[Rfam]
RNA sequence: GGGGAUGAACUUAGAGUCCCCAAGUACGGAAGUGUUAAUAGUGGCACUUUUGGCCGGGUGUCAUGGUUAGUGAAUC
Numbered sequence: 001g002g003g004g005a006u007g008a009a010c011u012u013a014g015a016g017u018c019c020c021c022a023a024g025u026a027c028g029g030a031a032g033u034g035u036u037a038a039u040a041g042u043g044g045c046a047c048u049u050u051u052g053g054c055c056g057g058g059u060g061u062c063a064u065g066g067u068u069a070g071u072g073a074a075u076c
Base pairs, nucleotide, nucleotide: 001021002020003019004018005017006016035070036069037068038067039066041064042063043062044061045060046059047058048057049056

The record is a 76-nucleotide RNA sequence, which matches "L13-Bacteroidia ribosomal protein leader" in Rfam. Pairs were carried over by alignment from the consensus structure, which is taken from published work. By type it is a cis-regulatory leader. On this family, see Eckert and Weinberg, BMC Microbiol 2020: "Discovery of 20 novel ribosomal leader candidates in bacteria and archaea".